[Rfam]
RNA sequence: AAGGGAGCAAUAACAAAAUUCUUGUUCUAUCAAGAGGGCGUUAUUGCUCCUUUUCCU
Numbered sequence: 001a002a003g004g005g006a007g008c009a010a011u012a013a014c015a016a017a018a019u020u021c022u023u024g025u026u027c028u029a030u031c032a033a034g035a036g037g038g039c040g041u042u043a044u045u046g047c048u049c050c051u052u053u054u055c056c057u
Base pairs, nucleotide, nucleotide: 001053002052003051004050005049006048007047008046009045010044011043012042013041014040019036020035021034022033023032024031

Source information
A member of the RNA family "Plastid-psbA-3 3UTR RNA", 57 nucleotides long. Pairs were carried over by alignment from the consensus structure, which was predicted with LocARNA. Rfam classes the family as a cis-regulatory element. For this family Rfam cites "Retrograde signaling in plants: A critical review focusing on the GUN pathway and beyond" (Richter et al., Plant Commun, 2023). Plastid psbA-3 is a non-coding RNA (ncRNA) present in plastids. It was identified in inverted repeat sequences in the 3 prime untranslate region (3UTR) of photosystem II quinone-binding protein (psbA).